Background: Rfam assigns this 87-nucleotide sequence from Polypterus senegalus to the family "mir-22 microRNA precursor family". Its family is annotated with miRNA-mediated post-transcriptional gene silencing and RISC complex in the Gene Ontology. For this family Rfam cites "Identification of human fetal liver miRNAs by a novel method" (Fu et al., FEBS Lett, 2005).

[Rfam]
RNA sequence: GGCUGAUCUGCAGCAGUUCUUCACUGGCAAGCUUUAUGUCCCACUUCUUCCGCUAAAGCUGCCAGUUGAAGAACUGUUGUGGUUGGC
Numbered sequence: 001g002g003c004u005g006a007u008c009u010g011c012a013g014c015a016g017u018u019c020u021u022c023a024c025u026g027g028c029a030a031g032c033u034u035u036a037u038g039u040c041c042c043a044c045u046u047c048u049u050c051c052g053c054u055a056a057a058g059c060u061g062c063c064a065g066u067u068g069a070a071g072a073a074c075u076g077u078u079g080u081g082g083u084u085g086g087c
Stems, first nucleotide, its partner, number of pairs: 005084003010080003017073006026063003030060007